[Rfam]
A member of the RNA family "skipping-rope RNA" from Bacillus sp. 37MA, 81 nucleotides long. The family's RNA type in Rfam is small RNA.
RNA sequence: GUUAUUUGAGGUGGGAAAGGUUCCCCACGCGCUAUCCAAUGGGUAGUUACCAGAGAUCAGGAGUGCCGCCCUGCUAAUAAC
Numbered sequence: 001g002u003u004a005u006u007u008g009a010g011g012u013g014g015g016a017a018a019g020g021u022u023c024c025c026c027a028c029g030c031g032c033u034a035u036c037c038a039a040u041g042g043g044u045a046g047u048u049a050c051c052a053g054a055g056a057u058c059a060g061g062a063g064u065g066c067c068g069c070c071c072u073g074c075u076a077a078u079a080a081c
Stems, first nucleotide, its partner, number of pairs: 001081006008074001011028005019067003030053001031047007058073004